[Rfam]
RNA sequence: UAUAGUUGCAGGUAGAGAUACGCUGUAUACUCAUGAUAUCGAAUUAACGUUUAAGCGAUAUGUAAUAUCGUCGAUCAUGAGGCCACCCUUGCGGUGGCUUUUUUACUU
Numbered sequence: 001u002a003u004a005g006u007u008g009c010a011g012g013u014a015g016a017g018a019u020a021c022g023c024u025g026u027a028u029a030c031u032c033a034u035g036a037u038a039u040c041g042a043a044u045u046a047a048c049g050u051u052u053a054a055g056c057g058a059u060a061u062g063u064a065a066u067a068u069c070g071u072c073g074a075u076c077a078u079g080a081g082g083c084c085a086c087c088c089u090u091g092c093g094g095u096g097g098c099u100u101u102u103u104u105a106c107u108u
Base pairs, nucleotide, nucleotide: 007027008026009025010024011023012021013020014019030081031080032079033078034077035076038075039074040073041072042051043050044049055071056070057069058068059067060066082098083097084096085095086094087093
RNA: DUF3800-I RNA